[Rfam]
Annotation
Rfam assigns this 78-nucleotide RNA sequence from Jenstvirus jenst to the family "skipping-rope RNA". A search with the family's covariance model found it, with a score of 68 bits. The family's consensus secondary structure is taken from published work. The family's RNA type in Rfam is small RNA. Taxonomically the source falls in Jenstvirus jenst (Viruses, Uroviricota, Caudoviricetes, Jenstvirus).
RNA sequence: AGCCGUAGAGGAUGGAAAGGUUUCCGUCGCGCCCUCGUGGUAGAAAGAGAUGUGGGAUACGCCGCCCCACCUACGGCU
Numbered sequence: 001a002g003c004c005g006u007a008g009a010g011g012a013u014g015g016a017a018a019g020g021u022u023u024c025c026g027u028c029g030c031g032c033c034c035u036c037g038u039g040g041u042a043g044a045a046a047g048a049g050a051u052g053u054g055g056g057a058u059a060c061g062c063c064g065c066c067c068c069a070c071c072u073a074c075g076g077c078u
Stems, first nucleotide, its partner, number of pairs: 001078008011028005019063003030047001031041003052070005